This 89-nucleotide sequence from Streptomyces sp. VN1 belongs to the Rfam family "Streptomyces RNA 3202".
The source organism's lineage runs through Bacteria, Actinomycetota, Actinomycetes, Streptomycetaceae and Streptomyces.
The base pairs follow the family's consensus structure.
On this family, see Vockenhuber et al., RNA Biol 2011: "Deep sequencing-based identification of small non-coding RNAs in Streptomyces coelicolor".
About the family: Identified by deep sequencing of transcriptome at the end of exponential growth phase. Appears smaller on northern blot than sequencing transcript. This indicates processing step.

RNA sequence: CCACGUCCCGACGCACUCCCCCCGGCGCCGGGACUUCCCCGAGCCGGGCUCGGUGCCUCUCCCCCCGAGGCGCCGGGUCCGGCUCUUUC
Numbered sequence: 001c002c003a004c005g006u007c008c009c010g011a012c013g014c015a016c017u018c019c020c021c022c023c024g025g026c027g028c029c030g031g032g033a034c035u036u037c038c039c040c041g042a043g044c045c046g047g048g049c050u051c052g053g054u055g056c057c058u059c060u061c062c063c064c065c066c067g068a069g070g071c072g073c074c075g076g077g078u079c080c081g082g083c084u085c086u087u088u089c
Base pairs, nucleotide, nucleotide: 005034006033007032008031009030010029012027013026014025041085042084043083044082045081046080047079048078049077050076051075052074053073054072055071056070057069058068059067